This 105-nucleotide sequence from Prunus yedoensis belongs to the Rfam family "MIR6274 microRNA precursor family". Pairs were carried over by alignment from the consensus structure, which was predicted with RNAalifold. A search with the family's covariance model found it, with a score of 84 bits. Rfam 15.1 lists 342 matches to the family in 8 species.
[Rfam]
RNA sequence: UGAUAACACUUUUUGCUAUCCCCGACCAAUAACGUAAUGACACGUUAGAUAACUUUUUCACAUGUCAUUAUGUUAUUGGCCAGGGAUAGCAAAACAGUGCUAUCC
Numbered sequence: 001u002g003a004u005a006a007c008a009c010u011u012u013u014u015g016c017u018a019u020c021c022c023c024g025a026c027c028a029a030u031a032a033c034g035u036a037a038u039g040a041c042a043c044g045u046u047a048g049a050u051a052a053c054u055u056u057u058u059c060a061c062a063u064g065u066c067a068u069u070a071u072g073u074u075a076u077u078g079g080c081c082a083g084g085g086a087u088a089g090c091a092a093a094a095c096a097g098u099g100c101u102a103u104c105c
Stems, first nucleotide, its partner, number of pairs: 002104004011094009021084002024081001026079017044061002047058003